About this RNA
A member of the RNA family "c-di-GMP-I riboswitch aptamer" from Erysipelatoclostridium sp. AM42-17, 75 nucleotides long. The base pairs follow the family's consensus structure, which is taken from published work. The source organism's lineage runs through Bacteria, Bacillati, Bacillota, Erysipelotrichia and Thomasclavelia. Its family is annotated with cyclic-di-GMP binding in the Gene Ontology.
RNA sequence: GUAAUUAAACGGCAAAGCUAUCGCAAGGUAGUGACGCAAAACUAUAGGGUCUUAAUAAGACAGCCAGUUGCAAUC
Numbered sequence: 001g002u003a004a005u006u007a008a009a010c011g012g013c014a015a016a017g018c019u020a021u022c023g024c025a026a027g028g029u030a031g032u033g034a035c036g037c038a039a040a041a042c043u044a045u046a047g048g049g050u051c052u053u054a055a056u057a058a059g060a061c062a063g064c065c066a067g068u069u070g071c072a073a074u075c
Stems, first nucleotide, its partner, number of pairs: 012037002017032006040069004047065002049061003